[Rfam]
Nucleotides: 086
Base pairs, nucleotide, nucleotide: 005051006050007049008048009047010046011045012044015041016040017074018073019072020071021070026037027036028035029034065079066078067077
Number, partner (000 for none) and nucleotide at each position: 001000g002000u003000c004000g005051c006050g007049g008048g009047c010046c011045g012044u013000g014000a015041c016040u017074g018073g019072c020071g021070c022000u023000g024000g025000g026037g027036u028035g029034g030000a031000g032000c033000a034029c035028c036027a037026c038000c039000g040016g041015g042000g043000a044012g045011c046010g047009g048008c049007u050006c051005g052000a053000c054000g055000c056000g057000a058000u059000g060000u061000c062000a063000c064000a065079g066078c067077c068000g069000u070021g071020c072019g073018c074017c075000u076000g077067g078066g079065c080000g081000a082000u083000c084000g085000u086000u
Rfam assigns this 86-nucleotide sequence from Streptomyces sp. SID5785 to the family "ZMP/ZTP riboswitch aptamer (pfl RNA motif)".
Gene Ontology terms of the family: one-carbon metabolic process and regulation of purine nucleotide biosynthetic process.
A search with the family's covariance model found it, with a score of 56 bits.
Lineage of the source: Bacteria > Bacillati > Actinomycetes > Kitasatosporales > Streptomyces.